[Rfam]
RNA sequence: ACACGAGAGAGGAGGUGGUCCAGAGUUGAGUAUCAACGGGACUCGUGAGGUGGCUGUCCGCUAGGACCGCCCUUCUGCGGACGAGCGGUCCGCGAAUAACAGGCAGCUACCCAGCCCCCGGUGCUCCCGAGCCAGUCCAGCUCGGGCCUGCGUGACGCAGGAGCAGGCCCGGGGGUUGCUGCGU
Numbered sequence: 001a002c003a004c005g006a007g008a009g010a011g012g013a014g015g016u017g018g019u020c021c022a023g024a025g026u027u028g029a030g031u032a033u034c035a036a037c038g039g040g041a042c043u044c045g046u047g048a049g050g051u052g053g054c055u056g057u058c059c060g061c062u063a064g065g066a067c068c069g070c071c072c073u074u075c076u077g078c079g080g081a082c083g084a085g086c087g088g089u090c091c092g093c094g095a096a097u098a099a100c101a102g103g104c105a106g107c108u109a110c111c112c113a114g115c116c117c118c119c120g121g122u123g124c125u126c127c128c129g130a131g132c133c134a135g136u137c138c139a140g141c142u143c144g145g146g147c148c149u150g151c152g153u154g155a156c157g158c159a160g161g162a163g164c165a166g167g168c169c170c171g172g173g174g175g176u177u178g179c180u181g182c183g184u
Base pairs, nucleotide, nucleotide: 014058015057016056017055018054019053059094060093061092064090065089067088068087069086070085072083074081112178113177114176115175116174117173118172119171120170121169123168124167125166127145128144129143130142131141132140
Shown here is a 184-nucleotide sequence from Solihabitans fulvus, a member of the family "Actinobacteria sRNA Ms_IGR-5". The family's RNA type in Rfam is small RNA. NCBI's taxonomy places the organism under Bacteria, Bacillati, Actinomycetota, Pseudonocardiaceae, Solihabitans. It scores 98 bits against the family's covariance model. The base pairs follow the family's consensus structure.